The record is a 133-nucleotide RNA from Oryctolagus cuniculus, which matches "Small nucleolar RNA SNORA41" in Rfam. The family's RNA type in Rfam is H/ACA-box small nucleolar RNA.
[Rfam]
RNA sequence: UUCCGCAACUACUGGUCUGCAGCUGUUCUUAUGGUAGCAGUUGUGGCAUUCCACCGUGGGAAAGAAACUGUUAUACAAUUAAAUACCUCUGUCUUAGCAAAACAGAAAGUGGGUAUAUGUGUGACACACAUGA
Number, nucleotide and partner (000 for none) at each position: 001u000002u000003c059004c058005g057006c056007a000008a000009c000010u000011a000012c000013u000014g000015g000016u000017c046018u045019g044020c043021a042022g041023c040024u039025g038026u000027u000028c000029u000030u000031a000032u000033g000034g000035u000036a000037g000038c025039a024040g023041u022042u021043g020044u019045g018046g017047c000048a000049u000050u000051c000052c000053a000054c000055c000056g006057u005058g004059g003060g000061a000062a000063a000064g000065a000066a000067a000068c000069u000070g000071u000072u000073a122074u121075a120076c119077a118078a000079u000080u000081a000082a000083a000084u000085a000086c113087c112088u111089c109090u108091g000092u106093c105094u104095u000096a000097g000098c000099a000100a000101a000102a000103c000104a094105g093106a092107a000108a090109g089110u000111g088112g087113g086114u000115a000116u000117a000118u077119g076120u075121g074122u073123g000124a000125c000126a000127c000128a000129c000130a000131u000132g000133a000
About the family: ACA41 is a member of the H/ACA class of snoRNA that guide the sites of modification of uridines to pseudouridines.